[Rfam]
RNA sequence: GGCCUGAUGCCACGUCUCUGAUAGCCAUACCAGAGAUGCUAUGAUUAUGUCGGAACAAAGUUGUUCCAACAUUUCACAUGUUGAUAGGAUCCUGGGGACUGCUUCUAUGUGUCCACAAAGUCGGUUAUUGUGAUUACAUUU
Numbered sequence: 001g002g003c004c005u006g007a008u009g010c011c012a013c014g015u016c017u018c019u020g021a022u023a024g025c026c027a028u029a030c031c032a033g034a035g036a037u038g039c040u041a042u043g044a045u046u047a048u049g050u051c052g053g054a055a056c057a058a059a060g061u062u063g064u065u066c067c068a069a070c071a072u073u074u075c076a077c078a079u080g081u082u083g084a085u086a087g088g089a090u091c092c093u094g095g096g097g098a099c100u101g102c103u104u105c106u107a108u109g110u111g112u113c114c115a116c117a118a119a120g121u122c123g124g125u126u127a128u129u130g131u132g133a134u135u136a137c138a139u140u141u
Base pairs, nucleotide, nucleotide: 002050003049005047006046007045008044009042013038014037015036016035017034018033020031022029074133075132076131077130078129087122088121093117094116096114097113098112099111

A member of the RNA family "Small nucleolar RNA snoR2/U65" from Zea mays, 141 nucleotides long. The match comes from Rfam's covariance-model search (86 bits). The literature on the family includes a 1998 paper in J Cell Sci by Shaw et al., "Localization and processing from a polycistronic precursor of novel snoRNAs in maize". Pairs were carried over by alignment from the consensus structure, which was predicted with WAR. The family has 11 seed sequences and 908 matches in Rfam 15.1. Taxonomically the source falls in Zea (Eukaryota, Streptophyta, Liliopsida, Panicoideae). Rfam classes the family as an H/ACA-box small nucleolar RNA.